[Rfam]
RNA: PyrR binding site
Organism: Lactobacillus acidophilus
RNA sequence: AUGACCUUUAAAAUUAGUCCCGUGAGGCUAAGAAGGAAAUCUGCGUGUGCUAGUCUUUUUUGUGCUAGCAGAAACAGAAAGACCAUCUUGGACUCAGUGUCCUUGGUGGUCUUUUUCUU
Numbered sequence: 001a002u003g004a005c006c007u008u009u010a011a012a013a014u015u016a017g018u019c020c021c022g023u024g025a026g027g028c029u030a031a032g033a034a035g036g037a038a039a040u041c042u043g044c045g046u047g048u049g050c051u052a053g054u055c056u057u058u059u060u061u062g063u064g065c066u067a068g069c070a071g072a073a074a075c076a077g078a079a080a081g082a083c084c085a086u087c088u089u090g091g092a093c094u095c096a097g098u099g100u101c102c103u104u105g106g107u108g109g110u111c112u113u114u115u116u117c118u119u
Base pairs, nucleotide, nucleotide: 005036006035007034008033009032014031015030016029017028018027019026043075046072048070049069050068051067052066053065054064056062078114079113080112081111082110083109084108085107086106087105090102091101092100093099